Rfam assigns this 94-nucleotide RNA sequence from Paenibacillus athensensis to the family "c-di-GMP-I riboswitch aptamer".
It scores 62 bits against the family's covariance model.
[Rfam]
RNA sequence: UUUGGAAAAUGGCAGCCUCGCACGAAAGUCGAGUACGCAAAGCCACGGGUCUACGGCGCAGUCGGACAAGCGCUAUGAUAGCCGGGUUCCCCUG
Numbered sequence: 001u002u003u004g005g006a007a008a009a010u011g012g013c014a015g016c017c018u019c020g021c022a023c024g025a026a027a028g029u030c031g032a033g034u035a036c037g038c039a040a041a042g043c044c045a046c047g048g049g050u051c052u053a054c055g056g057c058g059c060a061g062u063c064g065g066a067c068a069a070g071c072g073c074u075a076u077g078a079u080a081g082c083c084g085g086g087u088u089c090c091c092c093u094g
Base pairs, nucleotide, nucleotide: 012038013037017033018032019031020030022029023028041088042087043086044085046084047083048082049079050078051077056073057072058071059070